The family of this 126-nucleotide RNA sequence from Urocitellus parryii is "Small nucleolar RNA SNORA40". A reference for the family is Ofengand and Bakin (1997), "Mapping to nucleotide resolution of pseudouridine residues in large subunit ribosomal RNAs from representative eukaryotes, prokaryotes, archaebacteria, mitochondria and chloroplasts", J Mol Biol. The family has 28 seed sequences and 2,550 matches in Rfam 15.1. Taxonomically the source falls in Urocitellus (Eukaryota, Eumetazoa, Xerinae, Marmotini). The snoRNA ACA 40 belongs to the H/ACA family of snoRNAs and guides the pseudouridylation of 28S rRNA subunit at position U4565. NB This family has a high threshold value to exclude a large number of closely related sequences that do not appear to have conserved H and ACA boxes, and may be pseudogenes. It scores 74 bits against the family's covariance model. The base pairs follow the family's consensus structure, which was predicted with RNAalifold.
RNA sequence: UGCUUUCGUGUGUUUUUCAUUUAACUCAUGGACAAACUUAUAAACAGGUGCAAAUAUUAAACCUCUUUUUUGCAAUCUAAAACUUAUUGUUCAGUAUGAGUCUUGAUACAUAUAAGAAAGAAUAUU
Numbered sequence: 001u002g003c004u005u006u007c008g009u010g011u012g013u014u015u016u017u018c019a020u021u022u023a024a025c026u027c028a029u030g031g032a033c034a035a036a037c038u039u040a041u042a043a044a045c046a047g048g049u050g051c052a053a054a055u056a057u058u059a060a061a062c063c064u065c066u067u068u069u070u071u072g073c074a075a076u077c078u079a080a081a082a083c084u085u086a087u088u089g090u091u092c093a094g095u096a097u098g099a100g101u102c103u104u105g106a107u108a109c110a111u112a113u114a115a116g117a118a119a120g121a122a123u124a125u126u
Base pairs, nucleotide, nucleotide: 001052002051003050005048006047008045009044011042015036016035020032025030061123064121065120066119068117069116070115071114072113078105079104080103082101083100084099085098086097087096